[Rfam]
RNA sequence: UGGUUGUCGCUGGAUGUAACAGCAACUCCAUGUGGAAGCUGCUGUCAGUUCCAGUGGAGGUGCUGUUACCUCCAGAGACCGA
Numbered sequence: 001u002g003g004u005u006g007u008c009g010c011u012g013g014a015u016g017u018a019a020c021a022g023c024a025a026c027u028c029c030a031u032g033u034g035g036a037a038g039c040u041g042c043u044g045u046c047a048g049u050u051c052c053a054g055u056g057g058a059g060g061u062g063c064u065g066u067u068a069c070c071u072c073c074a075g076a077g078a079c080c081g082a
Stems, first nucleotide, its partner, number of pairs: 010075003016069008026059006033053003
A member of the RNA family "mir-194 microRNA precursor family" from Poecilia formosa, 82 nucleotides long. Rfam links the family to the GO terms miRNA-mediated post-transcriptional gene silencing and RISC complex. The base pairs follow the family's consensus structure, which was predicted with RNAalifold. A search with the family's covariance model found it, with a score of 78 bits.